[Rfam]
The record is an 87-nucleotide sequence from Bacteroides nordii, which matches "Group II catalytic intron D1-D4-1" in Rfam. About the family: Group II introns are found in rRNA, tRNA and mRNA of organelles in fungi, plants and protists, and also in mRNA in bacteria. On this family, see Bonen and Vogel, Trends Genet 2001: "The ins and outs of group II introns". Lineage of the source: Bacteria > Pseudomonadati > Bacteroidales > Bacteroides > Bacteroides nordii. Its family is annotated with Group II intron splicing in the Gene Ontology.
RNA sequence: CGUCAGUCAGUAAUGAUAGUAACAACGAAUGUCGAGAAGUCAGCAGAGGUCGUAGUAGCCGACAUCGAGUAAGUCAAGGCGAAGGAC
Numbered sequence: 001c002g003u004c005a006g007u008c009a010g011u012a013a014u015g016a017u018a019g020u021a022a023c024a025a026c027g028a029a030u031g032u033c034g035a036g037a038a039g040u041c042a043g044c045a046g047a048g049g050u051c052g053u054a055g056u057a058g059c060c061g062a063c064a065u066c067g068a069g070u071a072a073g074u075c076a077a078g079g080c081g082a083a084g085g086a087c
Stems, first nucleotide, its partner, number of pairs: 001027002006023002009020001011018002040047002049087003058080003061075003